RNA sequence: AGUCAUGCGUUGAGCAUAUAACGAACUAUUAUUUUACCUUUUACUAAAGAAUAUUGUGUGCUUGUCGUUCUAAGUGGCAUACGUCUAUUUUUUUAGAAGCUCGCCUUUAUGGGUGUC
Numbered sequence: 001a002g003u004c005a006u007g008c009g010u011u012g013a014g015c016a017u018a019u020a021a022c023g024a025a026c027u028a029u030u031a032u033u034u035u036a037c038c039u040u041u042u043a044c045u046a047a048a049g050a051a052u053a054u055u056g057u058g059u060g061c062u063u064g065u066c067g068u069u070c071u072a073a074g075u076g077g078c079a080u081a082c083g084u085c086u087a088u089u090u091u092u093u094u095a096g097a098a099g100c101u102c103g104c105c106u107u108u109a110u111g112g113g114u115g116u117c
Base pairs, nucleotide, nucleotide: 002078003077004076005075008067009066011064012063013062014061015060016059017058018057027053028052029051030050032048033047034046096117097116099114100113101112102111
U5 spliceosomal RNA: a 117-nucleotide RNA from Pyrus ussuriensis x Pyrus communis. About the family: U5 RNA is a component of both types of known spliceosome. The precise function of this molecule is unknown, though it is known that the 5' loop is required for splice site selection and p220 binding, and that both the 3' stem-loop and the Sm site are important for Sm protein binding and cap methylation. The base pairs follow the family's consensus structure, which is taken from published work. Rfam classes the family as a spliceosomal small nuclear RNA.